Rfam assigns this 75-nucleotide RNA from Arabidopsis thaliana to the family "Small nucleolar RNA ncR3". By type it is a C/D-box small nucleolar RNA. On this family, see Qu et al., BMC Genomics 2015: "Promoter-based identification of novel non-coding RNAs reveals the presence of dicistronic snoRNA-miRNA genes in Arabidopsis thaliana".
RNA sequence: GAAGCUUCCACGAUCUGAUGAAGUUGCCGUGACAAAGUGAUUUUUCCUUUGUUUUGCUGAUUCAGAGAUGCGUUG
Numbered sequence: 001g002a003a004g005c006u007u008c009c010a011c012g013a014u015c016u017g018a019u020g021a022a023g024u025u026g027c028c029g030u031g032a033c034a035a036a037g038u039g040a041u042u043u044u045u046c047c048u049u050u051g052u053u054u055u056g057c058u059g060a061u062u063c064a065g066a067g068a069u070g071c072g073u074u075g
Stems, first nucleotide, its partner, number of pairs: 009039003014034001016032001018030003047067004